Shown here is a 96-nucleotide sequence from Nicotiana attenuata, a member of the family "MIR6152 microRNA precursor family". The source organism's lineage runs through Eukaryota, Embryophyta, Mesangiospermae, Solanales and Nicotiana. The family's consensus secondary structure was predicted with RNAalifold. A search with the family's covariance model found it, with a score of 91 bits.
[Rfam]
RNA sequence: UGGACAGAUUAUUGUAUUCAACUGUAUUCACGGCAUGAAACAUGGGAUUUCACUGUUUGUAAACGAAAAGUGAAUCAAUUAACAUAAUAGACUCCC
Numbered sequence: 001u002g003g004a005c006a007g008a009u010u011a012u013u014g015u016a017u018u019c020a021a022c023u024g025u026a027u028u029c030a031c032g033g034c035a036u037g038a039a040a041c042a043u044g045g046g047a048u049u050u051c052a053c054u055g056u057u058u059g060u061a062a063a064c065g066a067a068a069a070g071u072g073a074a075u076c077a078a079u080u081a082a083c084a085u086a087a088u089a090g091a092c093u094c095c096c
Stems, first nucleotide, its partner, number of pairs: 002095003009090007017082002020080002023077002026075006034065001036063001038058005